[Rfam]
A member of the RNA family "MIR444 microRNA precursor family" from Brachypodium distachyon, 125 nucleotides long. Rfam's curators put it in the seed alignment.
RNA sequence: GGAAGACGCAAGUAUGACAGCGAAACAUGCAUUACUUGCGGGAAAGGCGCAAAACGAAUAGAAGAUCAUCAUACUUGUGGCUUUCUUGCAAGUUGUGCAGUUGCUGCCUCAAGCUUGCUGCCUCC
Numbered sequence: 001g002g003a004a005g006a007c008g009c010a011a012g013u014a015u016g017a018c019a020g021c022g023a024a025a026c027a028u029g030c031a032u033u034a035c036u037u038g039c040g041g042g043a044a045a046g047g048c049g050c051a052a053a054a055c056g057a058a059u060a061g062a063a064g065a066u067c068a069u070c071a072u073a074c075u076u077g078u079g080g081c082u083u084u085c086u087u088g089c090a091a092g093u094u095g096u097g098c099a100g101u102u103g104c105u106g107c108c109u110c111a112a113g114c115u116u117g118c119u120g121c122c123u124c125c
Base pairs, nucleotide, nucleotide: 009117010116011115012114013113016110017109030097031096032095035092037090038089039088040087041086044083045082046081048079049078050077051076
On this family, see Lu et al., Proc Natl Acad Sci U S A 2008: "Genome-wide analysis for discovery of rice microRNAs reveals natural antisense microRNAs (nat-miRNAs)". Its family is annotated with miRNA-mediated post-transcriptional gene silencing and RISC complex in the Gene Ontology.